[Rfam]
This 135-nucleotide RNA sequence from Caenorhabditis auriculariae belongs to the Rfam family "Caenorhabditis snoRNA ceN84". It is annotated as an H/ACA-box small nucleolar RNA. The literature on the family includes a 2007 paper in BMC Mol Biol by Jia et al., "Systematic identification of non-coding RNA 2,2,7-trimethylguanosine cap structures in Caenorhabditis elegans". Lineage of the source: Eukaryota > Bilateria > Protostomia > Peloderinae > Caenorhabditis.
RNA sequence: CUGCCACAGUGUCUGGGCAAGGUAGGCUUCACGUUGAAGCACUAACUUAAUCCACUGAUGGCUAGAUAAUAUUUGCAGAGGUAAUCCCUGUCGAUUCAUAGAUGAAUACUUCAGUUUCAUGACUUUGCAACAUGA
Numbered sequence: 001c002u003g004c005c006a007c008a009g010u011g012u013c014u015g016g017g018c019a020a021g022g023u024a025g026g027c028u029u030c031a032c033g034u035u036g037a038a039g040c041a042c043u044a045a046c047u048u049a050a051u052c053c054a055c056u057g058a059u060g061g062c063u064a065g066a067u068a069a070u071a072u073u074u075g076c077a078g079a080g081g082u083a084a085u086c087c088c089u090g091u092c093g094a095u096u097c098a099u100a101g102a103u104g105a106a107u108a109c110u111u112c113a114g115u116u117u118c119a120u121g122a123c124u125u126u127g128c129a130a131c132a133u134g135a
Base pairs, nucleotide, nucleotide: 003062004061005060007057008056009055010054015053016052017051020048021047022046023044024043025042026040027039028038029037030036074129076127078125079124081123082122088114089113090112093109094107095106096105097104

Its family is annotated with nucleolus and RNA processing in the Gene Ontology.
The family's consensus secondary structure was predicted with RNAalifold.